[Rfam]
RNA: MIR6152 microRNA precursor family
Organism: Nicotiana sylvestris
RNA sequence: UGGACAUAUUAUUGUAUUCGACUGUAUUCACGGCGUAAAAACAGGAGAUUACACUAUUUUUUAAACGGAAAAUGAAUCAAUUAACAUAAUAAAUUUCU
Numbered sequence: 001u002g003g004a005c006a007u008a009u010u011a012u013u014g015u016a017u018u019c020g021a022c023u024g025u026a027u028u029c030a031c032g033g034c035g036u037a038a039a040a041a042c043a044g045g046a047g048a049u050u051a052c053a054c055u056a057u058u059u060u061u062u063a064a065a066c067g068g069a070a071a072a073u074g075a076a077u078c079a080a081u082u083a084a085c086a087u088a089a090u091a092a093a094u095u096u097c098u
Stems, first nucleotide, its partner, number of pairs: 002097003009092007017084002020082002023079002026077005034067003038060004043055002